The family of this 135-nucleotide sequence from Podiceps cristatus is "Small nucleolar RNA SNORA58". On this family, see Huttenhofer et al., EMBO J 2001: "RNomics: an experimental approach that identifies 201 candidates for novel, small, non-messenger RNAs in mouse". Gene Ontology terms of the family: RNA processing and nucleolus. The family is grouped with related families in Rfam's "SNORA44 clan".
[Rfam]
RNA sequence: GUGCACACCAGUAGACCUUAUCUGGUUGCUCUAAUCGCCAGACGAGGGGGAUGGUGCAUGCUAUAAAAUCUGGGGGGUGCUGUAGGCUGUCGUCAGCCUCGUCGUGGCUGAUGGAACUGCAAUACUCCAACAUAC
Dot-bracket structure: ..(((..(.......((((.((((..............)))).))))........)..)))...........((((.(..(((.........(((((.........))))).......)))..))))).......